RNA sequence: UAGAACUGUUAACUUGAAGUGUGGAAUGAUGGAGUAACGCCCUGAAGCACACUCACUGAAUCUGCGGCAAGCGAUGGAAGCAAUGUAAAUAGCAGAAGUCGUUUGAAGCCCGCUAAAGUCGGCUGAAGUUUACCCUAGCACCUAAUGGUGAGGAAAGACCUUACAGGUUGUAAAUGAUAGGUCGGGUGUCUAUAAA
Numbered sequence: 001u002a003g004a005a006c007u008g009u010u011a012a013c014u015u016g017a018a019g020u021g022u023g024g025a026a027u028g029a030u031g032g033a034g035u036a037a038c039g040c041c042c043u044g045a046a047g048c049a050c051a052c053u054c055a056c057u058g059a060a061u062c063u064g065c066g067g068c069a070a071g072c073g074a075u076g077g078a079a080g081c082a083a084u085g086u087a088a089a090u091a092g093c094a095g096a097a098g099u100c101g102u103u104u105g106a107a108g109c110c111c112g113c114u115a116a117a118g119u120c121g122g123c124u125g126a127a128g129u130u131u132a133c134c135c136u137a138g139c140a141c142c143u144a145a146u147g148g149u150g151a152g153g154a155a156a157g158a159c160c161u162u163a164c165a166g167g168u169u170g171u172a173a174a175u176g177a178u179a180g181g182u183c184g185g186g187u188g189u190c191u192a193u194a195a196a
Stems, first nucleotide, its partner, number of pairs: 018053006031043002034040001054188004064113004068105008080093002120184005128175006134153003140149002157169005
Dot-bracket structure: .................((((((.......((.(.....).))....))))))((((......((((((((((((....((..........))....))))))))....))))......(((((...(((((((((...((......)).)))...(((((...)))))))))))....)))))))))........
Rfam assigns this 196-nucleotide RNA from Domibacillus mangrovi to the family "Group II catalytic intron D1-D4-5". Lineage of the source: Bacteria > Bacillati > Bacillota > Bacilli > Domibacillus. Rfam's curators write: Group II introns are found in rRNA, tRNA and mRNA of organelles in fungi, plants and protists, and also in mRNA in bacteria.